[Rfam]
Nucleotides: 359
Stems, first nucleotide, its partner, number of pairs: 001359004008352003013306007023101004036083005111342005120272004170181004184200005202268005208262001223253003307330009
Number, partner (000 for none) and nucleotide at each position: 001359g002358c003357c004356c005000u006000c007000c008352c009351c010350a011000a012000c013306g014305c015304u016303g017302c018301g019300u020000u021000u022000c023101c024100a025099u026098g027000c028000u029000a030000c031000a032000a033000a034000c035000a036083g037082a038081g039080a040079g041000a042000u043000u044000c045000c046000g047000c048000g049000c050000g051000a052000g053000u054000c055000u056000c057000u058000c059000g060000a061000g062000a063000c064000a065000a066000a067000a068000g069000a070000g071000a072000a073000c074000c075000u076000c077000g078000g079040u080039u081038u082037u083036c084000u085000a086000u087000c088000g089000u090000c091000a092000u093000c094000u095000a096000c097000g098026c099025a100024u101023g102000u103000g104000g105000g106000a107000a108000a109000u110000u111342c112341g113340g114339a115338g116000u117000a118000a119000g120272c121271c122270u123269c124000a125000a126000a127000u128000c129000c130000a131000u132000c133000c134000a135000a136000c137000c138000g139000u140000a141000c142000c143000g144000c145000u146000a147000u148000c149000u150000a151000g152000c153000a154000g155000u156000a157000u158000u159000u160000g161000g162000u163000u164000u165000g166000g167000u168000c169000u170181g171180c172179c173178g174000g175000u176000a177000a178173c179172g180171g181170c182000c183000u184200g185199g186198c187197g188196u189000c190000a191000a192000u193000g194000u195000c196188a197187c198186g199185u200184c201000u202268g203267c204266a205265a206264a207000u208262g209000a210000u211000a212000u213000c214000a215000g216000a217000a218000a219000u220000c221000u222000c223253a224252g225251a226000g227000c228000g229000g230000c231000g232000a233000a234000c235000u236000c237000g238000u239000u240000u241000u242000c243000g244000u245000c246000c247000g248000u249000a250000c251225u252224c253223u254000a255000u256000g257000g258000g259000a260000a261000g262208u263000c264206u265205u266204u267203g268202c269123g270122a271121g272120g273000c274000u275000u276000g277000u278000u279000g280000g281000a282000g283000a284000a285000a286000a287000a288000c289000u290000g291000a292000a293000g294000u295000g296000c297000g298000a299000u300019a301018c302017g303016c304015g305014g306013c307330g308329u309328c310327c311326u312325g313324u314323u315322u316000g317000c318000u319000u320000g321000c322315g323314a324313a325312c326311a327310g328309g329308a330307u331000g332000a333000c334000u335000c336000a337000a338115u339114u340113c341112c342111g343000a344000u345000c346000a347000c348000u349000c350010u351009g352008g353000g354000g355000a356004g357003g358002g359001c